[Rfam]
RNA sequence: UAAUGUUCUCAGGGCGAGGUGCAAUUCCUCACCGGUGGUGAAUAGAUAAGUCCACUAACAUGAAGAAUGUAGAUUUGGUGAAAAUCCAAAACCGACGGUUAUAGUCCGGAUGGAAGAGAAUAUUG
Numbered sequence: 001u002a003a004u005g006u007u008c009u010c011a012g013g014g015c016g017a018g019g020u021g022c023a024a025u026u027c028c029u030c031a032c033c034g035g036u037g038g039u040g041a042a043u044a045g046a047u048a049a050g051u052c053c054a055c056u057a058a059c060a061u062g063a064a065g066a067a068u069g070u071a072g073a074u075u076u077g078g079u080g081a082a083a084a085u086c087c088a089a090a091a092c093c094g095a096c097g098g099u100u101a102u103a104g105u106c107c108g109g110a111u112g113g114a115a116g117a118g119a120a121u122a123u124u125g
Base pairs, nucleotide, nucleotide: 003123004122005121006120007119008118009117010116017029018028019027031105032104033094034093035055036054037053038052050092051091058070059069060068074090075089076088077087078086096108097107098106
Background:
The family of this 125-nucleotide RNA sequence is "FMN riboswitch aptamer (RFN element)". The family's consensus secondary structure is taken from published work. A search with the family's covariance model found it, with a score of 115 bits.